About this RNA:
The record is a 335-nucleotide RNA from Felis catus, which matches "Nuclear RNase P" in Rfam.

RNA sequence: GGCGGAGGGAAGCUCAUCGGUGGGGCUACGCGCUGAGUGCCUUAAGUCACUCUACCCCAUGUCCCCUGGGAAGGUCUGAGACUAGGGCCAAAAGCGGCCCUAACAGGGUCCUCCCUGAGUUGCGGGGAGGUGAGUUCCCAGAGAACGGGGCUCCGCGCGAGGGCAGACUGGGCAGGAGAUGCCAUGGACCCCGCCCUCGAGGAGGGGCCUGGCGGAUGCCUCCUUAGCCGGAGCUUGGAAAAGACUCACGGCCAGCGAAGUGAGUUCAAUGGCUGAGGUGAGGUACCCCCCAACGGGGGGGCCUCAUAACCCAAUUCAGACUACUCUCCCCCGUC
Numbered sequence: 001g002g003c004g005g006a007g008g009g010a011a012g013c014u015c016a017u018c019g020g021u022g023g024g025g026c027u028a029c030g031c032g033c034u035g036a037g038u039g040c041c042u043u044a045a046g047u048c049a050c051u052c053u054a055c056c057c058c059a060u061g062u063c064c065c066c067u068g069g070g071a072a073g074g075u076c077u078g079a080g081a082c083u084a085g086g087g088c089c090a091a092a093a094g095c096g097g098c099c100c101u102a103a104c105a106g107g108g109u110c111c112u113c114c115c116u117g118a119g120u121u122g123c124g125g126g127g128a129g130g131u132g133a134g135u136u137c138c139c140a141g142a143g144a145a146c147g148g149g150g151c152u153c154c155g156c157g158c159g160a161g162g163g164c165a166g167a168c169u170g171g172g173c174a175g176g177a178g179a180u181g182c183c184a185u186g187g188a189c190c191c192c193g194c195c196c197u198c199g200a201g202g203a204g205g206g207g208c209c210u211g212g213c214g215g216a217u218g219c220c221u222c223c224u225u226a227g228c229c230g231g232a233g234c235u236u237g238g239a240a241a242a243g244a245c246u247c248a249c250g251g252c253c254a255g256c257g258a259a260g261u262g263a264g265u266u267c268a269a270u271g272g273c274u275g276a277g278g279u280g281a282g283g284u285a286c287c288c289c290c291c292a293a294c295g296g297g298g299g300g301g302c303c304u305c306a307u308a309a310c311c312c313a314a315u316u317c318a319g320a321c322u323a324c325u326c327u328c329c330c331c332c333g334u335c
Stems, first nucleotide, its partner, number of pairs: 001335004008329003013277004018272001022066004035052005040046001076319005086253004096110005111129006130249007150234006278307007
Description
Lineage of the source: Eukaryota > Metazoa > Gnathostomata > Felidae > Felis. For this family Rfam cites "Structural implications of novel diversity in eucaryal RNase P RNA" (Marquez et al., RNA, 2005).